Record summary:
The family of this 255-nucleotide sequence from Yersinia pseudotuberculosis is "Yersinia sRNA 141". Rfam's curators write: Shown to regulate the synthesis of the type III secretion system (T3SS) effector protein YopJ.The Yop-Ysc T3SS is a critical component of virulence for Yersinia species. Pairs were carried over by alignment from the consensus structure. Rfam classes the family as a small RNA.
RNA sequence: CUUUCCCCUUUUGCUUGCCAGCCAACCAGCCGACACUAAACCCAAGAGGCUCCAGCCAUUGACGGAAAGUAGUGGCGUGCUGUUCUGCCAGCAGUUCGGUCGGUGCCAUCAGGGCAACCUGCUUACCGUGAGCGAUGGCCCGUAGCGCGGCCAGUGCGGCUACCAGUGUUUUACCGGAACCGACAUCCCCCUGAAUCAGUCGCAUCAUCGGGAAACUUUGGGUCAUAUCCCGUUCAAUUUCGGCGACGACCCGUU
Dot-bracket structure: .((((((....((((.((.((.....((((((.(((((..(((((..(((....))).)))..))....))))).)).))))..)))).))))(((((..(((((....((((....))))..))))))))))..(((((((...)).)))))((((((((..(((.(.......(((.......)))).)))....))))))))....))))))...((((((...(((((........))).)).))))))..
Numbered sequence: 001c002u003u004u005c006c007c008c009u010u011u012u013g014c015u016u017g018c019c020a021g022c023c024a025a026c027c028a029g030c031c032g033a034c035a036c037u038a039a040a041c042c043c044a045a046g047a048g049g050c051u052c053c054a055g056c057c058a059u060u061g062a063c064g065g066a067a068a069g070u071a072g073u074g075g076c077g078u079g080c081u082g083u084u085c086u087g088c089c090a091g092c093a094g095u096u097c098g099g100u101c102g103g104u105g106c107c108a109u110c111a112g113g114g115c116a117a118c119c120u121g122c123u124u125a126c127c128g129u130g131a132g133c134g135a136u137g138g139c140c141c142g143u144a145g146c147g148c149g150g151c152c153a154g155u156g157c158g159g160c161u162a163c164c165a166g167u168g169u170u171u172u173a174c175c176g177g178a179a180c181c182g183a184c185a186u187c188c189c190c191c192u193g194a195a196u197c198a199g200u201c202g203c204a205u206c207a208u209c210g211g212g213a214a215a216c217u218u219u220g221g222g223u224c225a226u227a228u229c230c231c232g233u234u235c236a237a238u239u240u241c242g243g244c245g246a247c248g249a250c251c252c253g254u255u
Stems, first nucleotide, its partner, number of pairs: 002215006012093004017088002020086002027082004031077002034074005041065002043061003048057003094133005101128005110121004136153005141147002154205008164193003168189001176188003219253006228246002230243003